[Rfam]
RNA sequence: GGCCCAAAUCUGAAGCAAAGUAGAUUAGUAGGAUUGACCGAUCCUACUGAAGUACUCUGCUUCAAGUUUGUACCC
Number, nucleotide and partner (000 for none) at each position: 001g074002g073003c000004c000005c070006a069007a068008a067009u066010c000011u064012g063013a062014a061015g060016c059017a058018a000019a056020g055021u054022a053023g000024a000025u050026u049027a048028g047029u046030a045031g000032g043033a042034u041035u040036g000037a000038c000039c000040g035041a034042u033043c032044c000045u030046a029047c028048u027049g026050a025051a000052g000053u022054a021055c020056u019057c000058u017059g016060c015061u014062u013063c012064a011065a000066g009067u008068u007069u006070g005071u000072a000073c002074c001075c000

The family of this 75-nucleotide RNA from Haemonchus placei is "mir-5928 microRNA precursor family". NCBI's taxonomy places the organism under Eukaryota, Metazoa, Chromadorea, Strongyloidea, Haemonchus. The family's consensus secondary structure was predicted with RNAalifold. The match comes from Rfam's covariance-model search (62 bits).